[Rfam]
UnaL2 LINE 3' element: a 54-nucleotide sequence from Conger conger.
Taxonomically the source falls in Conger (Eukaryota, Craniata, Vertebrata, Anguilliformes).
By type it is a cis-regulatory element.
RNA sequence: UCUGCACGUCACUGUAAGUUGCUCUGGAUAAGAGCGUCUGCUAAAUGCCUUGUG
Numbered sequence: 001u002c003u004g005c006a007c008g009u010c011a012c013u014g015u016a017a018g019u020u021g022c023u024c025u026g027g028a029u030a031a032g033a034g035c036g037u038c039u040g041c042u043a044a045a046u047g048c049c050u051u052g053u054g
Stems, first nucleotide, its partner, number of pairs: 013043001014041003020036006